[Rfam]
RNA sequence: AGACGUUCUCAGGGCGAGGUGCAAUUCCUCACCGGCGGUAGGCAUCUUCGGAUGUAAGCCCGCGAGCGCCUUCGGCCAUUGCCGAAGGGUCAGCAGAUUCCGGUCAAAAUCCGGAGCCGACGGUUAAAGUCCGGAUGGAAGAGAACAUGA
Numbered sequence: 001a002g003a004c005g006u007u008c009u010c011a012g013g014g015c016g017a018g019g020u021g022c023a024a025u026u027c028c029u030c031a032c033c034g035g036c037g038g039u040a041g042g043c044a045u046c047u048u049c050g051g052a053u054g055u056a057a058g059c060c061c062g063c064g065a066g067c068g069c070c071u072u073c074g075g076c077c078a079u080u081g082c083c084g085a086a087g088g089g090u091c092a093g094c095a096g097a098u099u100c101c102g103g104u105c106a107a108a109a110u111c112c113g114g115a116g117c118c119g120a121c122g123g124u125u126a127a128a129g130u131c132c133g134g135a136u137g138g139a140a141g142a143g144a145a146c147a148u149g150a
Stems, first nucleotide, its partner, number of pairs: 003148001005146006017029003031130002033119002035063004058117002066094002099115005121133003
Notes: A member of the RNA family "FMN riboswitch aptamer (RFN element)" from Kozakia baliensis, 150 nucleotides long. A search with the family's covariance model found it, with a score of 107 bits. Rfam's curators write: The RFN element is a highly conserved domain that is found frequently in the 5'-untranslated regions of prokaryotic mRNAs that encode for flavin mononucleotide (FMN) biosynthesis and transport proteins. This element is a metabolite-dependent riboswitch that directly binds FMN in the absence of proteins. The organism belongs to Kozakia, within Bacteria.